[Rfam]
RNA sequence: ACUUUUAUUUUUUUCUUUUACUUUUAAAACCAUUUUUUCUACAACCUCUUCGGCCGAAGAGGUUGUGGAAAAAAUGUUUUUAAAAGAAAAAAAAAAAGCCUCUGACGAUCAGGCAACUCAGCUGGGAUCGUCAGAGGCUUUUUUUUU
Numbered sequence: 001a002c003u004u005u006u007a008u009u010u011u012u013u014u015c016u017u018u019u020a021c022u023u024u025u026a027a028a029a030c031c032a033u034u035u036u037u038u039c040u041a042c043a044a045c046c047u048c049u050u051c052g053g054c055c056g057a058a059g060a061g062g063u064u065g066u067g068g069a070a071a072a073a074a075u076g077u078u079u080u081u082a083a084a085a086g087a088a089a090a091a092a093a094a095a096a097a098g099c100c101u102c103u104g105a106c107g108a109u110c111a112g113g114c115a116a117c118u119c120a121g122c123u124g125g126g127a128u129c130g131u132c133a134g135a136g137g138c139u140u141u142u143u144u145u146u147u
Base pairs, nucleotide, nucleotide: 016091017090018089019088021086022085023084024083025082026081027080028079029078031076032075033074034073036071037070038069039068042053045052055065056064057063095141096140097139098138099137100136101135102134103133104132105131106130107129108128109127110126